RNA: Plastid-psbA-2 3UTR RNA
RNA sequence: AUAAAGGAGCAAUAAUCAAUUUCUUGUUCUAGCAAGAAGUUUGGUAUUGCUCCUUUUUUAUU
Dot-bracket structure: (.((((((((((((.(.((..(((((......)))))..)).).)))))))))))).)....
Numbered sequence: 001a002u003a004a005a006g007g008a009g010c011a012a013u014a015a016u017c018a019a020u021u022u023c024u025u026g027u028u029c030u031a032g033c034a035a036g037a038a039g040u041u042u043g044g045u046a047u048u049g050c051u052c053c054u055u056u057u058u059u060a061u062u
Stems, first nucleotide, its partner, number of pairs: 001058001003056012016043001018041002022037005